RNA sequence: GGGUGUGAGGGUGAUUUGGCUGCGACAUCUGUCACCCCAUUGAUCGCUAGGGUUGAUUCGGCUGAUCUGGCUGGCUAGGCAGGUGUCCUCCUUCCUUUACAGCUCCAUGUGCGUCCUUCUUAAAGCUCAACGCUCAGUCACAGAGGAUGACACCCUAGAAGAGGACCGCUCUGACGGUCUAGGGUAUAUGAUGUAGCUGCACUCUCCUGCGAGGCUAAACCUCCAAGACCAUUUGUAGGAUGGCAUCGGGAAGUCAAGCUCCAAGACUUCAGAAGAUGUCUUGGAGGCUGUGUGCACCGUGUUGCACUGUGGUGUUCCCA
Numbered sequence: 001g002g003g004u005g006u007g008a009g010g011g012u013g014a015u016u017u018g019g020c021u022g023c024g025a026c027a028u029c030u031g032u033c034a035c036c037c038c039a040u041u042g043a044u045c046g047c048u049a050g051g052g053u054u055g056a057u058u059c060g061g062c063u064g065a066u067c068u069g070g071c072u073g074g075c076u077a078g079g080c081a082g083g084u085g086u087c088c089u090c091c092u093u094c095c096u097u098u099a100c101a102g103c104u105c106c107a108u109g110u111g112c113g114u115c116c117u118u119c120u121u122a123a124a125g126c127u128c129a130a131c132g133c134u135c136a137g138u139c140a141c142a143g144a145g146g147a148u149g150a151c152a153c154c155c156u157a158g159a160a161g162a163g164g165a166c167c168g169c170u171c172u173g174a175c176g177g178u179c180u181a182g183g184g185u186a187u188a189u190g191a192u193g194u195a196g197c198u199g200c201a202c203u204c205u206c207c208u209g210c211g212a213g214g215c216u217a218a219a220c221c222u223c224c225a226a227g228a229c230c231a232u233u234u235g236u237a238g239g240a241u242g243g244c245a246u247c248g249g250g251a252a253g254u255c256a257a258g259c260u261c262c263a264a265g266a267c268u269u270c271a272g273a274a275g276a277u278g279u280c281u282u283g284g285a286g287g288c289u290g291u292g293u294g295c296a297c298c299g300u301g302u303u304g305c306a307c308u309g310u311g312g313u314g315u316u317c318c319c320a
Base pairs, nucleotide, nucleotide: 001106002105003104005100006099007098008097009096010095011094013093014092018090019089024087025086026085027084028083029082030081031080032079033078035074036073037070038069039068042067043066044065045064046062047061048060114164115163116161117160118159119158120137121136123134125133126132138157145154146153196259197258198257202253203252205250206249207248209246215239216238219236220235281320283318285315287313288312289311290308292307293306294305295304
A member of the RNA family "7SK RNA" from Scyliorhinus torazame, 320 nucleotides long. Pairs were carried over by alignment from the consensus structure, which is taken from published work. The match comes from Rfam's covariance-model search (190 bits). Lineage of the source: Eukaryota > Metazoa > Chordata > Chondrichthyes > Scyliorhinus. Rfam's curators write: 7SK was discovered as an abundant small nuclear RNA in the mid-70s but a possible function has only recently been suggested. Two independent studies have found that 7SK RNA binds the CDK9/cyclin T complex (known as elongation factor P-TEFb).